[Rfam]
RNA sequence: UCUGGGAAGUGAUGAUAAAUAUAUCGAUAUUUCAUAGGCAUAUGAAAUGCUGAACAAAAUAUUUGCACGUCAGUCUGAUCCCAGC
Numbered sequence: 001u002c003u004g005g006g007a008a009g010u011g012a013u014g015a016u017a018a019a020u021a022u023a024u025c026g027a028u029a030u031u032u033c034a035u036a037g038g039c040a041u042a043u044g045a046a047a048u049g050c051u052g053a054a055c056a057a058a059a060u061a062u063u064u065g066c067a068c069g070u071c072a073g074u075c076u077g078a079u080c081c082c083a084g085c
Stems, first nucleotide, its partner, number of pairs: 002084006
RNA: Small nucleolar RNA Z122
Organism: Capsella rubella